The family of this 113-nucleotide RNA from Lactobacillus psittaci is "FMN riboswitch aptamer (RFN element)". About the family: The RFN element is a highly conserved domain that is found frequently in the 5'-untranslated regions of prokaryotic mRNAs that encode for flavin mononucleotide (FMN) biosynthesis and transport proteins. This element is a metabolite-dependent riboswitch that directly binds FMN in the absence of proteins.
RNA sequence: AAACGUCUUCAAGGCAGGGUGAAAAUCCCGACCGGCUGUUUGAGUCAGCAACCCACUUAUGUGGCUGAACCUAAAGGUACCGAUAGUUAUAGUCUAGAUGAAAGAAGACAGAU
Numbered sequence: 001a002a003a004c005g006u007c008u009u010c011a012a013g014g015c016a017g018g019g020u021g022a023a024a025a026u027c028c029c030g031a032c033c034g035g036c037u038g039u040u041u042g043a044g045u046c047a048g049c050a051a052c053c054c055a056c057u058u059a060u061g062u063g064g065c066u067g068a069a070c071c072u073a074a075a076g077g078u079a080c081c082g083a084u085a086g087u088u089a090u091a092g093u094c095u096a097g098a099u100g101a102a103a104g105a106a107g108a109c110a111g112a113u
Stems, first nucleotide, its partner, number of pairs: 005109006017029003031093002033082002035049004044080002053064002069078003084096003